Background: The family of this 118-nucleotide RNA from Oryzicola mucosus is "Alphaproteobacterial ar14". Smr14C2 was renamed NfeR1 (Nodule Formation Efficiency RNA) highly expressed in salt stress and during the symbiotic interaction on legume roots. Gene Ontology term of the family: biological process involved in symbiotic interaction. The base pairs follow the family's consensus structure.
[Rfam]
RNA sequence: UUGCGUGUCGGCAGUCUACCUCCUCCCAGACGCGCCGACGCCAGAAUGCGCUGCACCUCCUCCCGCGGCGUAUUUCGAAUUAAGCCCGCCGCACCUCCUCCCGCGGCGGGCUUUUUCG
Number, nucleotide and partner (000 for none) at each position: 001u000002u000003g000004c000005g000006u000007g039008u038009c037010g000011g035012c034013a000014g031015u030016c029017u000018a000019c000020c000021u000022c000023c000024u000025c000026c000027c000028a000029g016030a015031c014032g000033c000034g012035c011036c000037g009038a008039c007040g000041c000042c000043a000044g075045a074046a073047u072048g071049c070050g069051c068052u067053g066054c000055a000056c000057c000058u000059c000060c000061u000062c000063c000064c000065g000066c053067g052068g051069c050070g049071u048072a047073u046074u045075u044076c000077g000078a000079a000080u000081u000082a113083a112084g111085c110086c109087c108088g107089c106090c105091g104092c103093a000094c000095c000096u000097c000098c000099u000100c000101c000102c000103g092104c091105g090106g089107c088108g087109g086110g085111c084112u083113u082114u000115u000116u000117c000118g000